[Rfam]
A member of the RNA family "Nuclear RNase P" from Schizophyllum amplum, 600 nucleotides long. Rfam's curators write: Ribonuclease P (RNase P) is a ubiquitous endoribonuclease, found in archaea, bacteria and eukarya as well as chloroplasts and mitochondria. It is annotated as a ribozyme. Taxonomically the source falls in Schizophyllum (Eukaryota, Opisthokonta, Agaricomycotina, Agaricomycetidae). The base pairs follow the family's consensus structure, which is taken from published work.

RNA sequence: GCAGGUUCAAGGCCGCGAUGCUCGCCACGCACAGAACGCCCUCCGGCGUCCUCCUUUGCGAGCGGGCCAAGGUCUGAGUGAUGCACCCCUCAAUGUGUCCCAGCUGGACCCGGCUGUAAAAUUAAUCAGCUGAGCGACGUACCAGAAAUGCCACGCGUCUACCCUGGCCGCGGUCGGUCGUGCACCUUCUGUGGAAGCCGCCCUCUCGUACCGCGGAGGGGCCCGUGAAAUCGAGUAACAUCGAUGGAGGCUCCGGUGGAUGAUGUGCUGAAAGUCGUCGUGGUGCCCGGGCGCGCUCUCCACCCCCUGCGCCUGCUGCCAGCUCACUUGUCCCACCCCGAUCUGCACAGAAGCCUUCCUCGGGGGGCACGGAAUUCGGCCCUCUGUUGCAGGGUCGCUCGCUAGAGUGCGGGUACCCUGUGCCCCAGGUCCCUUGUGCAUACUGGCUCGUGUGUAGGAUCCGCUGUGCGGGUGGUGUGGGCGCCGUUCUGACGGUGUUGUAAGCUGGCAGCGUAGGGGACGGGCGCGUCCUUGAGUGCAAUUCGCGGCUCGCUUCGCUCCGUAGCAAGCGUAACUCGAUUCAGACUACUCUCUAUCUGC
Numbered sequence: 001g002c003a004g005g006u007u008c009a010a011g012g013c014c015g016c017g018a019u020g021c022u023c024g025c026c027a028c029g030c031a032c033a034g035a036a037c038g039c040c041c042u043c044c045g046g047c048g049u050c051c052u053c054c055u056u057u058g059c060g061a062g063c064g065g066g067c068c069a070a071g072g073u074c075u076g077a078g079u080g081a082u083g084c085a086c087c088c089c090u091c092a093a094u095g096u097g098u099c100c101c102a103g104c105u106g107g108a109c110c111c112g113g114c115u116g117u118a119a120a121a122u123u124a125a126u127c128a129g130c131u132g133a134g135c136g137a138c139g140u141a142c143c144a145g146a147a148a149u150g151c152c153a154c155g156c157g158u159c160u161a162c163c164c165u166g167g168c169c170g171c172g173g174u175c176g177g178u179c180g181u182g183c184a185c186c187u188u189c190u191g192u193g194g195a196a197g198c199c200g201c202c203c204u205c206u207c208g209u210a211c212c213g214c215g216g217a218g219g220g221g222c223c224c225g226u227g228a229a230a231u232c233g234a235g236u237a238a239c240a241u242c243g244a245u246g247g248a249g250g251c252u253c254c255g256g257u258g259g260a261u262g263a264u265g266u267g268c269u270g271a272a273a274g275u276c277g278u279c280g281u282g283g284u285g286c287c288c289g290g291g292c293g294c295g296c297u298c299u300c301c302a303c304c305c306c307c308u309g310c311g312c313c314u315g316c317u318g319c320c321a322g323c324u325c326a327c328u329u330g331u332c333c334c335a336c337c338c339c340g341a342u343c344u345g346c347a348c349a350g351a352a353g354c355c356u357u358c359c360u361c362g363g364g365g366g367g368c369a370c371g372g373a374a375u376u377c378g379g380c381c382c383u384c385u386g387u388u389g390c391a392g393g394g395u396c397g398c399u400c401g402c403u404a405g406a407g408u409g410c411g412g413g414u415a416c417c418c419u420g421u422g423c424c425c426c427a428g429g430u431c432c433c434u435u436g437u438g439c440a441u442a443c444u445g446g447c448u449c450g451u452g453u454g455u456a457g458g459a460u461c462c463g464c465u466g467u468g469c470g471g472g473u474g475g476u477g478u479g480g481g482c483g484c485c486g487u488u489c490u491g492a493c494g495g496u497g498u499u500g501u502a503a504g505c506u507g508g509c510a511g512c513g514u515a516g517g518g519g520a521c522g523g524g525c526g527c528g529u530c531c532u533u534g535a536g537u538g539c540a541a542u543u544c545g546c547g548g549c550u551c552g553c554u555u556c557g558c559u560c561c562g563u564a565g566c567a568a569g570c571g572u573a574a575c576u577c578g579a580u581u582c583a584g585a586c587u588a589c590u591c592u593c594u595a596u597c598u599g600c
Stems, first nucleotide, its partner, number of pairs: 001600004009592001012549007020063005034051001036049003039045001074584005084285004097109004111132006134281006152267003551571005